[Rfam]
RNA sequence: CCGCCCGUCGCUACUAUCGAUUGAACGUUUAAGUGAGGGCCUCAGAUUGGCCGGAAGCCUGAUUUCAAAUUAGGUAUUGCCGGAGGAAAAGACGCUCGAACUCGAGCGCUUAGAGAAAGUAAAAGUCGUAACAAGGUUUCCGUAGGUGAACCUGCGGAAGGGAUCAUUA
Numbered sequence: 001c002c003g004c005c006c007g008u009c010g011c012u013a014c015u016a017u018c019g020a021u022u023g024a025a026c027g028u029u030u031a032a033g034u035g036a037g038g039g040c041c042u043c044a045g046a047u048u049g050g051c052c053g054g055a056a057g058c059c060u061g062a063u064u065u066c067a068a069a070u071u072a073g074g075u076a077u078u079g080c081c082g083g084a085g086g087a088a089a090a091g092a093c094g095c096u097c098g099a100a101c102u103c104g105a106g107c108g109c110u111u112a113g114a115g116a117a118a119g120u121a122a123a124a125g126u127c128g129u130a131a132c133a134a135g136g137u138u139u140c141c142g143u144a145g146g147u148g149a150a151c152c153u154g155c156g157g158a159a160g161g162g163a164u165c166a167u168u169a
Base pairs, nucleotide, nucleotide: 001135003132006128007127009125012121013120014119015118017116018115021112023111024110026108027107028106029105030104032102033101034100037097038096039095040094042092043091047087048086051083052082053081054080056078057077058074059073060072061071062070063069137160138159139158140157141156142155143154144153145152146151
Rfam assigns this 169-nucleotide part of an RNA from Murchisonella sp. AD-2009 to the family "Eukaryotic small subunit ribosomal RNA". Clan: SSU clan. Rfam 15.1 lists 75,755 matches to the family in 2,556 species.